[Rfam]
RNA sequence: AUACUGCAUUAAGAUUGGGCUAGCACCCAUACCAACCUGCCCACCCGGGCAAGGUGGUUUCUGAAAAGAGAUGCGGCUCUUGAGGGCAAAUGUACGGGGAGCG
Numbered sequence: 001a002u003a004c005u006g007c008a009u010u011a012a013g014a015u016u017g018g019g020c021u022a023g024c025a026c027c028c029a030u031a032c033c034a035a036c037c038u039g040c041c042c043a044c045c046c047g048g049g050c051a052a053g054g055u056g057g058u059u060u061c062u063g064a065a066a067a068g069a070g071a072u073g074c075g076g077c078u079c080u081u082g083a084g085g086g087c088a089a090a091u092g093u094a095c096g097g098g099g100a101g102c103g
Stems, first nucleotide, its partner, number of pairs: 006074005016029004031058003036054003039050003044098004076087004
RNA: SAM-I/IV (S-adenosyl methionine) riboswitch aptamer